[Rfam]
RNA sequence: GUUUUUCCCAGAGGGGUGCACCUAAGAACACAGGUGAUUUGGCCUUUGCUAAGAGAGGCUAAAUGCUAAUGCAGCAAAGCAAUACCUUGUGUUCUCAGGUCACCCCUUUGGGGUACAU
Numbered sequence: 001g002u003u004u005u006u007c008c009c010a011g012a013g014g015g016g017u018g019c020a021c022c023u024a025a026g027a028a029c030a031c032a033g034g035u036g037a038u039u040u041g042g043c044c045u046u047u048g049c050u051a052a053g054a055g056a057g058g059c060u061a062a063a064u065g066c067u068a069a070u071g072c073a074g075c076a077a078a079g080c081a082a083u084a085c086c087u088u089g090u091g092u093u094c095u096c097a098g099g100u101c102a103c104c105c106c107u108u109u110g111g112g113g114u115a116c117a118u
Stems, first nucleotide, its partner, number of pairs: 007112002011108004016103003020100001025095009
RNA: MIR398 microRNA precursor family
Organism: Hibiscus trionum